[Rfam]
RNA sequence: UAGUGCCUAUGAUGGACUGUUUCUAAACUCUUUUGGAUGAAGCAGUCUUGAUGUUUUCACACUC
Numbered sequence: 001u002a003g004u005g006c007c008u009a010u011g012a013u014g015g016a017c018u019g020u021u022u023c024u025a026a027a028c029u030c031u032u033u034u035g036g037a038u039g040a041a042g043c044a045g046u047c048u049u050g051a052u053g054u055u056u057u058c059a060c061a062c063u064c
Stems, first nucleotide, its partner, number of pairs: 002063004014048010029037003
Shown here is a 64-nucleotide RNA sequence from Clupea harengus, a member of the family "Selenocysteine insertion sequence 1". It is annotated as a cis-regulatory element. NCBI's taxonomy places the organism under Eukaryota, Actinopteri, Neopterygii, Teleostei, Clupea. The family's consensus secondary structure is taken from published work. The match comes from Rfam's covariance-model search (38 bits).